[Rfam]
RNA: MIR6152 microRNA precursor family
RNA sequence: UAGAUAGAUUAUUGUAUUCGAGUGUAUUCACGAUAUGUAUUUGUGAAUACAGUAACGUAAAUAGCGCAAUUCAUGGUCUAUUCAAUUAUUUUUAAACGAAAAGUGAAUCAAUUAACAUAAUAGACUCCU
Numbered sequence: 001u002a003g004a005u006a007g008a009u010u011a012u013u014g015u016a017u018u019c020g021a022g023u024g025u026a027u028u029c030a031c032g033a034u035a036u037g038u039a040u041u042u043g044u045g046a047a048u049a050c051a052g053u054a055a056c057g058u059a060a061a062u063a064g065c066g067c068a069a070u071u072c073a074u075g076g077u078c079u080a081u082u083c084a085a086u087u088a089u090u091u092u093u094a095a096a097c098g099a100a101a102a103g104u105g106a107a108u109c110a111a112u113u114a115a116c117a118u119a120a121u122a123g124a125c126u127c128c129u
Stems, first nucleotide, its partner, number of pairs: 003127002009123007017115002020113002023110002026108006034098001036096001037089003041085003